[Rfam]
RNA sequence: UUGAGCGGAACCCGGGCGAGAACCGCGAAGUCCUGUCGCAACGUCCGGGUGACCAACAUCCUGUUGG
Number, nucleotide and partner (000 for none) at each position: 001u000002u000003g000004a000005g000006c000007g000008g000009a000010a000011c049012c048013c047014g046015g045016g044017c043018g000019a000020g000021a000022a000023c000024c000025g039026c038027g037028a036029a000030g000031u000032c000033c000034u000035g000036u028037c027038g026039c025040a000041a000042c000043g017044u016045c015046c014047g013048g012049g011050u000051g000052a000053c067054c066055a065056a064057c063058a000059u000060c000061c000062u000063g057064u056065u055066g054067g053